[Rfam]
Background: Shown here is a 116-nucleotide RNA sequence from Neochlamydia sp. S13, a member of the family "Group II catalytic intron D1-D4-2".
RNA sequence: GGAGAAGACCCUCCGAAGUCGGUUUUCAGGAACGGGCUUCAAACCACCUUAAGCUGCUGUUAUUAAGAGUAAUGGUGGUGAGCAUUAAGGAAAAGUCGAGAUAAAACUUGGAAGGU
Numbered sequence: 001g002g003a004g005a006a007g008a009c010c011c012u013c014c015g016a017a018g019u020c021g022g023u024u025u026u027c028a029g030g031a032a033c034g035g036g037c038u039u040c041a042a043a044c045c046a047c048c049u050u051a052a053g054c055u056g057c058u059g060u061u062a063u064u065a066a067g068a069g070u071a072a073u074g075g076u077g078g079u080g081a082g083c084a085u086u087a088a089g090g091a092a093a094a095g096u097c098g099a100g101a102u103a104a105a106a107c108u109u110g111g112a113a114g115g116u
Base pairs, nucleotide, nucleotide: 001013002012004010015040016039017038018037019036020035022033023032024031025030045115047090048089049088050087051086052085053079054078056076057075058074060072061071062070063069096111097110098109099108100107

For this family Rfam cites "The ins and outs of group II introns" (Bonen and Vogel, Trends Genet, 2001).